[Rfam]
RNA sequence: UGCCUUGCCGCUCGGCAAAACAUAUAAAACAGAAAUCGUGCUGGUAAUUUUUGUAAACACAAAGAUGACGGCUCGACAAAAACAU
Numbered sequence: 001u002g003c004c005u006u007g008c009c010g011c012u013c014g015g016c017a018a019a020a021c022a023u024a025u026a027a028a029a030c031a032g033a034a035a036u037c038g039u040g041c042u043g044g045u046a047a048u049u050u051u052u053g054u055a056a057a058c059a060c061a062a063a064g065a066u067g068a069c070g071g072c073u074c075g076a077c078a079a080a081a082a083c084a085u
Base pairs, nucleotide, nucleotide: 006017007016008015009014040072041071047066050063051062052061053060